mir-204 microRNA precursor family: an 89-nucleotide RNA sequence from Chanos chanos. The literature on the family includes a 2005 paper in Genes Dev by Chen et al., "The developmental miRNA profiles of zebrafish as determined by small RNA cloning". Rfam 15.1 lists 1,730 matches to the family in 644 species. NCBI's taxonomy places the organism under Eukaryota, Vertebrata, Actinopteri, Chanidae, Chanos.
[Rfam]
RNA sequence: CUGUGGCAUCCUGGGUUUCCCUUUGUCAUCCUAUGCCUGGGGAUCCAUAUAAGGCAGGGACAGCAAAGGGAGAUCCAGCCGUCACCCCA
Numbered sequence: 001c002u003g004u005g006g007c008a009u010c011c012u013g014g015g016u017u018u019c020c021c022u023u024u025g026u027c028a029u030c031c032u033a034u035g036c037c038u039g040g041g042g043a044u045c046c047a048u049a050u051a052a053g054g055c056a057g058g059g060a061c062a063g064c065a066a067a068g069g070g071a072g073a074u075c076c077a078g079c080c081g082u083c084a085c086c087c088c089a
Base pairs, nucleotide, nucleotide: 018071019070020069021068022067023066025064026063029060030059031058032057035055036054037053038052